[Rfam]
RNA sequence: UUCGUCUCACGUAACUGGCGCAAAACCGGAUCAAAGCAGACUGCCUUGAUUUCGGCAAAGGUGGGCAUCCACCGGGAAGCGUGAGAGUUUUUCGCCGUGCGCCUGGGCAGCCCGA
Numbered sequence: 001u002u003c004g005u006c007u008c009a010c011g012u013a014a015c016u017g018g019c020g021c022a023a024a025a026c027c028g029g030a031u032c033a034a035a036g037c038a039g040a041c042u043g044c045c046u047u048g049a050u051u052u053c054g055g056c057a058a059a060g061g062u063g064g065g066c067a068u069c070c071a072c073c074g075g076g077a078a079g080c081g082u083g084a085g086a087g088u089u090u091u092u093c094g095c096c097g098u099g100c101g102c103c104u105g106g107g108c109a110g111c112c113c114g115a
Stems, first nucleotide, its partner, number of pairs: 005086008015076002017103005061072004092110001094108003
Dot-bracket structure: ....((((((((..(([[[[[.......................................((((....))))..))..)))))))).....(.(((..]]]]]..))).).....
RNA: ZMP/ZTP riboswitch aptamer (pfl RNA motif)